[Rfam]
RNA sequence: GACGACCGGCUGGACGCUUCUGUGUCCGGCCCACAAGUGGAGGCUCCGAUCUCCCACCUGACCGUCCUCCGGGACGGCGGGUCACCGGUCAGGCGAUGCCCAUCGUUCCGUACGGACGAUGGAAAUCGCCCGAUGUGCGCCCUGCGGCUGGCCGCGGUGGUGCUCCGGAUUUGAGGAGCUGCCGCCUGUGUCCCGUCCGGGGCAUUUUUC
Numbered sequence: 001g002a003c004g005a006c007c008g009g010c011u012g013g014a015c016g017c018u019u020c021u022g023u024g025u026c027c028g029g030c031c032c033a034c035a036a037g038u039g040g041a042g043g044c045u046c047c048g049a050u051c052u053c054c055c056a057c058c059u060g061a062c063c064g065u066c067c068u069c070c071g072g073g074a075c076g077g078c079g080g081g082u083c084a085c086c087g088g089u090c091a092g093g094c095g096a097u098g099c100c101c102a103u104c105g106u107u108c109c110g111u112a113c114g115g116a117c118g119a120u121g122g123a124a125a126u127c128g129c130c131c132g133a134u135g136u137g138c139g140c141c142c143u144g145c146g147g148c149u150g151g152c153c154g155c156g157g158u159g160g161u162g163c164u165c166c167g168g169a170u171u172u173g174a175g176g177a178g179c180u181g182c183c184g185c186c187u188g189u190g191u192c193c194c195g196u197c198c199g200g201g202g203c204a205u206u207u208u209u210c
Base pairs, nucleotide, nucleotide: 004090005089006088007087008086009085012027013026028083029082030081031080032079034060035059037057038056039055040054041052042051062077063076064075065074066073067072092130093129094128095127096126100122101121102120103119104118105117106116107115139203140202141201142200143199144198145195146194147193153190154189155188156186157185158184159183160182162179163178164177165176166175
RNA: Streptomyces RNA 1601